[Rfam]
RNA sequence: AUUGCUUUGCCCCCUACUUCGAGCUUUACGGCUUUGCCGAGUUUCACUAGCGAGUGAGCUGCUCGACCAACACUAAACAGCACUCAGGGCAAAC
Dot-bracket structure: .....(((((((......((((((....((((...))))(((.((..........)))))))))))....................))))))).
RAGATH-13 RNA: a 94-nucleotide RNA sequence from Legionella beliardensis. It scores 91 bits against the family's covariance model. It is annotated as a ribozyme. For this family Rfam cites "New classes of self-cleaving ribozymes revealed by comparative genomics analysis" (Weinberg et al., Nat Chem Biol, 2015). The source organism's lineage runs through Bacteria, Pseudomonadati, Gammaproteobacteria, Legionellaceae and Legionella. Gene Ontology term of the family: catalytic activity.